[Rfam]
RNA sequence: ACCUUUUGGGGAGUAGCCGCCUUUCCGCCACGGGAAGGGCCCGCGUCAACAGGCUUGGCCCGACACGGCCAUGGCGCGGGCAGCCUGCCGGCCUGGCGAGACCAUGGACCUUCCCUGCCGCGCCGGGCGGCAGGGCCGAGGUCUAUGCGUAGCGGCCCGGCAGGA
Number, nucleotide and partner (000 for none) at each position: 001a000002c000003c000004u000005u000006u000007u000008g000009g000010g000011g000012a000013g000014u000015a000016g000017c000018c000019g000020c000021c037022u036023u035024u000025c000026c000027g000028c000029c000030a000031c000032g000033g000034g000035a023036a022037g021038g000039g081040c080041c079042c078043g077044c076045g075046u074047c073048a072049a000050c000051a000052g000053g000054c000055u000056u071057g070058g069059c068060c067061c000062g000063a000064c000065a000066c000067g060068g059069c058070c057071a056072u048073g047074g046075c045076g044077c043078g042079g041080g040081c039082a000083g000084c164085c163086u162087g161088c160089c000090g000091g000092c000093c000094u000095g000096g000097c000098g000099a000100g000101a000102c000103c000104a000105u000106g000107g000108a000109c000110c000111u000112u000113c000114c000115c000116u000117g000118c000119c000120g000121c000122g000123c000124c000125g000126g000127g000128c000129g000130g000131c000132a000133g000134g000135g000136c000137c000138g000139a000140g000141g000142u000143c000144u000145a000146u000147g000148c000149g000150u000151a000152g000153c000154g000155g000156c000157c000158c000159g000160g088161c087162a086163g085164g084165a000